[Rfam]
RNA: U5 spliceosomal RNA
RNA sequence: AUAAACUGUUUUCUCUUCAUAACGUACGAGUAUAAAUCUUUCACUUUUUACUGAAGGUUACCGUGGAGGGGAAGAUGUCACAGUUUUGUAAGCAAUUGGUCGCAACUUCACAUCACUAUAUUA
Number, nucleotide and partner (000 for none) at each position: 001a000002u000003a086004a085005a084006c083007u000008g000009u074010u073011u072012u071013c070014u069015c068016u067017u066018c065019a064020u000021a000022a000023c000024g000025u000026a000027c000028g000029a000030g000031u000032a000033u000034a000035a059036a058037u057038c056039u055040u054041u053042c000043a000044c000045u000046u000047u000048u000049u000050a000051c000052u000053g041054a040055a039056g038057g037058u036059u035060a000061c000062c000063g000064u019065g018066g017067a016068g015069g014070g013071g012072a011073a010074g009075a000076u000077g000078u000079c000080a000081c000082a000083g006084u005085u004086u003087u000088g000089u000090a000091a000092g000093c000094a000095a000096u000097u000098g000099g000100u000101c000102g000103c000104a000105a000106c000107u000108u123109c000110a121111c000112a000113u000114c000115a000116c000117u000118a000119u000120a000121u110122u000123a108